Shown here is a 58-nucleotide RNA sequence, a member of the family "Mu-gpT-DE RNA". The sequence is in the family's curated seed alignment.

RNA sequence: UCCUGACUGAUGUUUCAUGUGGAACAUUAGACACUAGCCAAGACAGGAGAUAAUAAUG
Numbered sequence: 001u002c003c004u005g006a007c008u009g010a011u012g013u014u015u016c017a018u019g020u021g022g023a024a025c026a027u028u029a030g031a032c033a034c035u036a037g038c039c040a041a042g043a044c045a046g047g048a049g050a051u052a053a054u055a056a057u058g
Stems, first nucleotide, its partner, number of pairs: 002047004007030008